[Rfam]
RNA sequence: CCAGCAUGGAUACUCAAGAGGGUGAGUCUCCCUGGGCUCUGUCCAGGUGGUAUAGGGGAGCAUAGGACUCUGCCCCAUGAUGUACAGUUCCUUUCCAUAACGUUGGAGAUGUAGCUGGCCUUUGUGUCUGUGCCUGCAUAUUUCUACAACUUCUCAAGAGUCUUGUGGACUAUGACUGAAGAGACGAACCAUGCAGGAAACAAUA
Numbered sequence: 001c002c003a004g005c006a007u008g009g010a011u012a013c014u015c016a017a018g019a020g021g022g023u024g025a026g027u028c029u030c031c032c033u034g035g036g037c038u039c040u041g042u043c044c045a046g047g048u049g050g051u052a053u054a055g056g057g058g059a060g061c062a063u064a065g066g067a068c069u070c071u072g073c074c075c076c077a078u079g080a081u082g083u084a085c086a087g088u089u090c091c092u093u094u095c096c097a098u099a100a101c102g103u104u105g106g107a108g109a110u111g112u113a114g115c116u117g118g119c120c121u122u123u124g125u126g127u128c129u130g131u132g133c134c135u136g137c138a139u140a141u142u143u144c145u146a147c148a149a150c151u152u153c154u155c156a157a158g159a160g161u162c163u164u165g166u167g168g169a170c171u172a173u174g175a176c177u178g179a180a181g182a183g184a185c186g187a188a189c190c191a192u193g194c195a196g197g198a199a200a201c202a203a204u205a
Stems, first nucleotide, its partner, number of pairs: 001106005007100001008044005013036003018030003047098004056091004060085001062083003065078001133197007150183003154179002160170004
RNA: Small nucleolar RNA SNORA73 family